[Rfam]
RNA sequence: AUUGGGAAAUGAUGAAUAGAUUUAUCCUACACGCUGAAUAUCCGUGUUGAUUAAUAUCUCCGCUUAUUGUCUGAUUCCAUU
Numbered sequence: 001a002u003u004g005g006g007a008a009a010u011g012a013u014g015a016a017u018a019g020a021u022u023u024a025u026c027c028u029a030c031a032c033g034c035u036g037a038a039u040a041u042c043c044g045u046g047u048u049g050a051u052u053a054a055u056a057u058c059u060c061c062g063c064u065u066a067u068u069g070u071c072u073g074a075u076u077c078c079a080u081u
Base pairs, nucleotide, nucleotide: 003079004078005077006076007075
RNA: Small nucleolar RNA R16